[Rfam]
RNA sequence: UGACACCGCGCGGGAGAGUCUCCGCGUCAGCGGAGCGCCGAAGGGGCAAUUCCUCCCCGGAACCUCUCAGGCGCCAGGGACCGUGCGGACUGA
Number, nucleotide and partner (000 for none) at each position: 001u000002g000003a000004c000005a000006c088007c087008g086009c085010g084011c083012g082013g081014g000015a000016g000017a000018g000019u000020c035021u034022c033023c032024g000025c000026g000027u000028c000029a000030g000031c000032g023033g022034a021035g020036c000037g072038c071039c070040g068041a067042a000043g000044g066045g065046g064047c000048a000049a000050u060051u059052c000053c000054u000055c000056c000057c000058c000059g051060g050061a000062a000063c000064c046065u045066c044067u041068c040069a000070g039071g038072c037073g000074c000075c000076a000077g000078g000079g000080a000081c013082c012083g011084u010085g009086c008087g007088g006089a000090c000091u000092g000093a000
RNA: Glycine riboswitch aptamer